[Rfam]
RNA: mraW RNA
Organism: Frondihabitans sp. PhB188
RNA sequence: CUGACGCCCUCGGCCCUGACUCCCAGCCGUCCACCCCUGGCACACCUUCCCCGGUGCCAGGUGGGAUGGAUGGGGAUCAGGGCCGAGGAAUCAGACUCC
Dot-bracket structure: .........(((((((.((.(((((.((((((.(.((((((((..........)))))))).))))))).))))).)).))))))).............